Shown here is a 371-nucleotide sequence from Bacillus sp. OxB-1, a member of the family "BsrG". bsrE, bsrG and bsrH pair through intermolecular interactions with antisense sRNAs. They form type I toxin/antitoxin system that includes an mRNA encoding for a short, toxic peptide (bsrE, bsrG and bsrH) and an antitoxin that is comprised of an antisense RNA. bsrG encodes a 39-amino-acid toxin, and the 180 nucleotide antisense sRNA called SR4 acts as the antitoxin (they overlap by 123 nucleotides). SR4 interaction with the 3'UTR of bsrG RNA promotes bsrG degradation and inhibits its translation. BsrG interferes with cell envelope biosynthesis, causes membrane invaginations and delocalisation of the cell wall synthesis and initiates autolysis. bsrE RNA encodes 30 amino-acid toxin peptide. Its antitoxin gene, SR5 overlaps by 112 nucleotides at the 3' end of bsrE. SR5 also overlaps bsrG from nucleotide 163 to 52 (Rfam overlap check). The antitoxin SR5 promotes bsrE degradation but unlike SR4 it does not directly inhibits toxin mRNA translation. For this family Rfam cites "In Vitro Characterization of the Type I Toxin-Antitoxin System bsrE/SR5 from Bacillus subtilis" (Meissner et al., J Biol Chem, 2016). By type it is a small RNA. A search with the family's covariance model found it, with a score of 95 bits. Gene Ontology terms of the family: toxin activity and autolysis. Pairs were carried over by alignment from the consensus structure, which was predicted with WAR.
[Rfam]
RNA sequence: GAGUAAUAGAAUAGGUGACUCAAGGGUGGUCGGCCAUUUCCCGUGAAGGCAACCUAAGUGCGCCACGUCCUGUGGCAACGGUUGCAUGACCUACAUCCUGUAGGCCCGGAGGUGGUCGCAUGUCAGUAUCUGAAGCACUAAUGCUUAUGUUAACAUUUGGAGUAUUAAGGAAGGCAGUCUAAGAACGCGACAUCCUGUCGCAACGACUGCAUGACCCGCAUCCUGCGGGCCUCAAUACUGUCAUUCCACAACAAAAAAUAAUCCAUCCUUGAGUGUCGGCUCAUAAUGGAUGGAUUAUUUUAAUCCCAAGGCCGAUCCCCCCUUGAAGGGAACCUGCUAUUACAGACCGCCUAAUGUUAGCGCAUUGGGCG
Dot-bracket structure: .((((.(((....(((..((((((((.(((...(((.((((..................................................................)))).)))......(.(((((......(((..........))).........(((....................................................................)))..))))).)..................)))..))))))))..........((...............))............))).(((......)))...))).))))......((((((((((....))))))))))